Archaeal RNase P: a 434-nucleotide RNA sequence from Haloferax volcanii.
Rfam links the family to the GO terms ribonuclease P activity, multimeric ribonuclease P complex and tRNA processing.
The family is grouped with related families in Rfam's "RNaseP clan".
From the family's description: Ribonuclease P (RNase P) is a ubiquitous endoribonuclease, found in archaea, bacteria and eukarya as well as chloroplasts and mitochondria.
A reference for the family is Brown (1999), "The Ribonuclease P Database", Nucleic Acids Res.
The sequence is in the family's curated seed alignment.
RNA sequence: GGCAGAGAGAGCCCAGUUCCCGUGCCCGAGACGGGCAUGAGGAAAGUCCCCCCACCGUCCGAACGGGUGACCGGGCGCAAGCCCGGAGUCGGAGACGGCUGGCGCUGGAACAGAAACGAGACCGCUCGACCCGACCGAUGAUGCGCGCGCGACGGCUCCGCCGUCGCCGGCGCGGCCGUCACGGCCGCGUGCGAACCGACCCGUAAGGGAAGGGAGCUAACCCGCAGAGGGAUGAGGUGGCGUCGCCAUCUCCGACGGUCGAGAACGGAUGGAACGGCGAAUCCUCACCGGUGCAAGUCCGCGCCGCGAAGGGUAGUUCGGACGGCGCGUCGGGUUCGCCCGUCGCGCCCUCGGGGGGCUCGCCCCGAGAAGGACGCGGACGCUGAGCCGAAUGCUGGGACGAACAGAAGGGGGCUUACUCCUCUCAGCCGCUU
Numbered sequence: 001g002g003c004a005g006a007g008a009g010a011g012c013c014c015a016g017u018u019c020c021c022g023u024g025c026c027c028g029a030g031a032c033g034g035g036c037a038u039g040a041g042g043a044a045a046g047u048c049c050c051c052c053c054a055c056c057g058u059c060c061g062a063a064c065g066g067g068u069g070a071c072c073g074g075g076c077g078c079a080a081g082c083c084c085g086g087a088g089u090c091g092g093a094g095a096c097g098g099c100u101g102g103c104g105c106u107g108g109a110a111c112a113g114a115a116a117c118g119a120g121a122c123c124g125c126u127c128g129a130c131c132c133g134a135c136c137g138a139u140g141a142u143g144c145g146c147g148c149g150c151g152a153c154g155g156c157u158c159c160g161c162c163g164u165c166g167c168c169g170g171c172g173c174g175g176c177c178g179u180c181a182c183g184g185c186c187g188c189g190u191g192c193g194a195a196c197c198g199a200c201c202c203g204u205a206a207g208g209g210a211a212g213g214g215a216g217c218u219a220a221c222c223c224g225c226a227g228a229g230g231g232a233u234g235a236g237g238u239g240g241c242g243u244c245g246c247c248a249u250c251u252c253c254g255a256c257g258g259u260c261g262a263g264a265a266c267g268g269a270u271g272g273a274a275c276g277g278c279g280a281a282u283c284c285u286c287a288c289c290g291g292u293g294c295a296a297g298u299c300c301g302c303g304c305c306g307c308g309a310a311g312g313g314u315a316g317u318u319c320g321g322a323c324g325g326c327g328c329g330u331c332g333g334g335u336u337c338g339c340c341c342g343u344c345g346c347g348c349c350c351u352c353g354g355g356g357g358g359c360u361c362g363c364c365c366c367g368a369g370a371a372g373g374a375c376g377c378g379g380a381c382g383c384u385g386a387g388c389c390g391a392a393u394g395c396u397g398g399g400a401c402g403a404a405c406a407g408a409a410g411g412g413g414g415c416u417u418a419c420u421c422c423u424c425u426c427a428g429c430c431g432c433u434u
Base pairs, nucleotide, nucleotide: 001430002429003428005426006425007424008423009422010420011419012399013398014397015396016395017394021039022038023037024036025035026034027033044417045416046415048414049413050412051411052410053293054292055291056290063314066289067288068287069286070285071086072085073084074083075082087100088099089098090097091096101284102283106280108278122268123267124266125263126262127261128260129259130258131257143217144216297381298380299379300378301377302376303375304373305372